[Rfam]
Background:
Rfam assigns this 53-nucleotide RNA sequence from Aceticella autotrophica to the family "Na+ riboswitch aptamer (DUF1646)".
RNA sequence: GGUUGAUCAAGUUUUUACUUGAAUCAAGAUUUUGGCUUUCAGGGUGGAAAGUU
Numbered sequence: 001g002g003u004u005g006a007u008c009a010a011g012u013u014u015u016u017a018c019u020u021g022a023a024u025c026a027a028g029a030u031u032u033u034g035g036c037u038u039u040c041a042g043g044g045u046g047g048a049a050a051g052u053u
Stems, first nucleotide, its partner, number of pairs: 003027003007022005034053007